RNA sequence: GCAGUCGAUCACUCACUCAACCUGGGUGUGAUGCUUAUUUGAAUCAUCACAACCUCCUUGAGUGAGCGACCGAUUGA
Dot-bracket structure: ........(..(((((((((...((.(((((((...........))))))).))...))))))))).).........